[Rfam]
Shown here is an 82-nucleotide RNA sequence from Naganishia liquefaciens, a member of the family "tRNA". Pairs were carried over by alignment from the consensus structure, which is taken from published work. Taxonomically the source falls in Naganishia (Eukaryota, Agaricomycotina, Filobasidiales, Filobasidiaceae). It scores 50 bits against the family's covariance model. Gene Ontology term of the family: triplet codon-amino acid adaptor activity.
RNA sequence: GAGUAGAUACUCCUAAUGGUAAGGGGCCUGUCUGUAAAAUAGGUGAUUAAUAUCGUUGUAGGUUCAAGUCCUGCUCUACUCA
Numbered sequence: 001g002a003g004u005a006g007a008u009a010c011u012c013c014u015a016a017u018g019g020u021a022a023g024g025g026g027c028c029u030g031u032c033u034g035u036a037a038a039a040u041a042g043g044u045g046a047u048u049a050a051u052a053u054c055g056u057u058g059u060a061g062g063u064u065c066a067a068g069u070c071c072u073g074c075u076c077u078a079c080u081c082a
Stems, first nucleotide, its partner, number of pairs: 001081007011025004027043005058074005